Shown here is an 85-nucleotide RNA from Pan paniscus, a member of the family "mir-548 microRNA precursor family".
The literature on the family includes a 2010 paper in BMC Biol by Witten et al., "Ultra-high throughput sequencing-based small RNA discovery and discrete statistical biomarker analysis in a collection of cervical tumours and matched controls".
Taxonomically the source falls in Pan (Eukaryota, Teleostomi, Euteleostomi, Simiiformes).
The family's consensus secondary structure was predicted with WAR.
It scores 92 bits against the family's covariance model.

RNA sequence: UAUUAGGUUGGUGCAAAAGCAAUUGCGUUUUUUUGCCAUUAAAGUAAUGGCAAAAAAACGCAAUUGCUUUUGCACCAACCUAAUA
Numbered sequence: 001u002a003u004u005a006g007g008u009u010g011g012u013g014c015a016a017a018a019g020c021a022a023u024u025g026c027g028u029u030u031u032u033u034u035g036c037c038a039u040u041a042a043a044g045u046a047a048u049g050g051c052a053a054a055a056a057a058a059c060g061c062a063a064u065u066g067c068u069u070u071u072g073c074a075c076c077a078a079c080c081u082a083a084u085a
Base pairs, nucleotide, nucleotide: 001085002084003083004082005081006080007079008078009077010076011075012074013073014072015071016070017069018068019067020066021065022064023063024062025061026060027059028058029057030056031055032054033053034052035051036050037049038048039047040046